This 115-nucleotide RNA sequence from Micrococcus terreus belongs to the Rfam family "Glycine riboswitch aptamer". Gene Ontology term of the family: glycine biosynthetic process. A search with the family's covariance model found it, with a score of 34 bits.
RNA sequence: CUCUGGAAAGCGUCACGGCAGCCAGCCGCGACCACCGACGGUGCAACGACCUCCGGCCCCGGGCGCACGCCGCCACAGGACCUGACAGUCGAAAUCUCUCAGGUCCAUGACAGAG
Numbered sequence: 001c002u003c004u005g006g007a008a009a010g011c012g013u014c015a016c017g018g019c020a021g022c023c024a025g026c027c028g029c030g031a032c033c034a035c036c037g038a039c040g041g042u043g044c045a046a047c048g049a050c051c052u053c054c055g056g057c058c059c060c061g062g063g064c065g066c067a068c069g070c071c072g073c074c075a076c077a078g079g080a081c082c083u084g085a086c087a088g089u090c091g092a093a094a095u096c097u098c099u100c101a102g103g104u105c106c107a108u109g110a111c112a113g114a115g
Base pairs, nucleotide, nucleotide: 001115002114003113004112005111012032013031014030034104035103036102037100038099041098043096047091048090049089050088
Description: NCBI's taxonomy places the organism under Bacteria, Actinomycetes, Micrococcales, Micrococcaceae, Micrococcus.